[Rfam]
Rfam assigns this 70-nucleotide RNA from Synechococcus sp. WH 5701 to the family "Cyano-1 RNA".
The organism belongs to Synechococcus, within Bacteria.
It is one of the family's seed sequences.
The family's RNA type in Rfam is small RNA.
RNA sequence: UCUUGUGUGAGGAGUGCAGAACGCUCUCCUGGGGUCGAAACGAGGACAGACUCCCGGCAUCGUUCCACCU
Numbered sequence: 001u002c003u004u005g006u007g008u009g010a011g012g013a014g015u016g017c018a019g020a021a022c023g024c025u026c027u028c029c030u031g032g033g034g035u036c037g038a039a040a041c042g043a044g045g046a047c048a049g050a051c052u053c054c055c056g057g058c059a060u061c062g063u064u065c066c067a068c069c070u
Base pairs, nucleotide, nucleotide: 019065020064021063022062023061029057031055032054033053034051035050036049
Dot-bracket structure: ..................(((((.....(.((((((............))).))).)...))))).....